[Rfam]
RNA: Small nucleolar RNA SNORA44
Organism: Phyllostomus discolor
RNA sequence: CCCCAUGUUUCCAAGGGCUGCGGCUGGUUGUAGCCGUGGGAUCCCCAACUGCAUUCGAGAGCAACUGGGAGAGGCUCUGAUGGCUGAGAUUAGCAUAACACCUGCAGCUGCCACUCGCCUUUCCUACAAUA
Numbered sequence: 001c002c003c004c005a006u007g008u009u010u011c012c013a014a015g016g017g018c019u020g021c022g023g024c025u026g027g028u029u030g031u032a033g034c035c036g037u038g039g040g041a042u043c044c045c046c047a048a049c050u051g052c053a054u055u056c057g058a059g060a061g062c063a064a065c066u067g068g069g070a071g072a073g074g075c076u077c078u079g080a081u082g083g084c085u086g087a088g089a090u091u092a093g094c095a096u097a098a099c100a101c102c103u104g105c106a107g108c109u110g111c112c113a114c115u116c117g118c119c120u121u122u123c124c125u126a127c128a129a130u131a
Base pairs, nucleotide, nucleotide: 011039012038016035017034018033019032020031021030022029068124069123070122071121072120073119083111084110087103088102